[Rfam]
RNA sequence: CGAUGCCGAGUGGGAGAGUUCCCACGGUGGAACGCCGAAGGGGCAAUUCUCCCCAGAACCUCUCAGGCGCCCGGACCACUUGGAUGAG
Numbered sequence: 001c002g003a004u005g006c007c008g009a010g011u012g013g014g015a016g017a018g019u020u021c022c023c024a025c026g027g028u029g030g031a032a033c034g035c036c037g038a039a040g041g042g043g044c045a046a047u048u049c050u051c052c053c054c055a056g057a058a059c060c061u062c063u064c065a066g067g068c069g070c071c072c073g074g075a076c077c078a079c080u081u082g083g084a085u086g087a088g
Base pairs, nucleotide, nucleotide: 006083007082008081009080010079011078012077013076019032020031021030022029034068035067036066037064038063041062042061043060047055
A member of the RNA family "Glycine riboswitch aptamer" from Leekyejoonella antrihumi, 88 nucleotides long. The pairing is the family consensus, mapped onto this sequence. Rfam links the family to the GO term glycine biosynthetic process. The match comes from Rfam's covariance-model search (61 bits).